[Rfam]
RNA sequence: UUUAACGUGAUUUAACACUUGUUAACGUGAAUACCAAGGAAGUUACUCAGGUAUUCAAAUAUUAUACUUUCAUGAUUUAGAAAGCUUCUAAAUUCAUGACAUUUCUCCUUAACCGAAGCUGUGUAUACAGAUUCGUUGUUCUGCGCAAUGAUCACCCCAAUCAUUGCGUAUUUUUUUGUCUAUAAAA
Numbered sequence: 001u002u003u004a005a006c007g008u009g010a011u012u013u014a015a016c017a018c019u020u021g022u023u024a025a026c027g028u029g030a031a032u033a034c035c036a037a038g039g040a041a042g043u044u045a046c047u048c049a050g051g052u053a054u055u056c057a058a059a060u061a062u063u064a065u066a067c068u069u070u071c072a073u074g075a076u077u078u079a080g081a082a083a084g085c086u087u088c089u090a091a092a093u094u095c096a097u098g099a100c101a102u103u104u105c106u107c108c109u110u111a112a113c114c115g116a117a118g119c120u121g122u123g124u125a126u127a128c129a130g131a132u133u134c135g136u137u138g139u140u141c142u143g144c145g146c147a148a149u150g151a152u153c154a155c156c157c158c159a160a161u162c163a164u165u166g167c168g169u170a171u172u173u174u175u176u177u178g179u180c181u182a183u184a185a186a187a
Base pairs, nucleotide, nucleotide: 013045014044015043016042022041023040026039028037062185063184064183065182066181069178071098072097074095077092078091114135115134116133117132119130120129121128122127143169144168145167146166147165148164149163150162151161152160